[Rfam]
RNA sequence: GUUCGUCUUCAGGGGCAGGGUGCAAUUCCCGACCGGUGGUGAUAGUCCACGACCUGCUUUACUUUUAGGAGUGAGGUGGCUGAAUUGGUGAAAUUCCAAUACCGACAGUACAGUCUGGAUAAAGAAGAUAGGG
Number, nucleotide and partner (000 for none) at each position: 001g000002u000003u131004c000005g129006u128007c127008u126009u125010c124011a000012g000013g000014g000015g000016c000017a000018g030019g029020g028021u000022g000023c000024a000025a000026u000027u000028c020029c019030c018031g000032a114033c113034c104035g103036g050037u049038g048039g047040u000041g000042a000043u000044a000045g102046u101047c039048c038049a037050c036051g000052a000053c000054c079055u078056g077057c076058u075059u000060u000061a000062c000063u000064u000065u000066u000067a000068g000069g000070a000071g000072u000073g000074a000075g058076g057077u056078g055079g054080c000081u000082g000083a000084a100085u099086u098087g097088g096089u000090g000091a000092a000093a000094u000095u000096c088097c087098a086099a085100u084101a046102c045103c035104g034105a000106c117107a116108g115109u000110a000111c000112a000113g033114u032115c108116u107117g106118g000119a000120u000121a000122a000123a000124g010125a009126a008127g007128a006129u005130a000131g003132g000133g000
RNA: FMN riboswitch aptamer (RFN element)